Rfam assigns this 91-nucleotide sequence from Dicentrarchus labrax to the family "Small nucleolar RNA SNORD60".

[Rfam]
RNA sequence: AGCCGGUGAUGACAGACUCAAAAUCAACUUUUCUGACACCUACUAUGAGAGCUGUACUGCAGCUCCUGAUUCGAACUUUAUUCUGAGGCUU
Numbered sequence: 001a002g003c004c005g006g007u008g009a010u011g012a013c014a015g016a017c018u019c020a021a022a023a024u025c026a027a028c029u030u031u032u033c034u035g036a037c038a039c040c041u042a043c044u045a046u047g048a049g050a051g052c053u054g055u056a057c058u059g060c061a062g063c064u065c066c067u068g069a070u071u072c073g074a075a076c077u078u079u080a081u082u083c084u085g086a087g088g089c090u091u
Stems, first nucleotide, its partner, number of pairs: 001090004051063005
The base pairs follow the family's consensus structure, which was predicted with PFOLD. It is annotated as a C/D-box small nucleolar RNA. The source organism's lineage runs through Eukaryota, Bilateria, Euteleostomi, Euteleosteomorpha and Dicentrarchus. The match comes from Rfam's covariance-model search (55 bits). The family is grouped with related families in Rfam's "SNORD60 clan".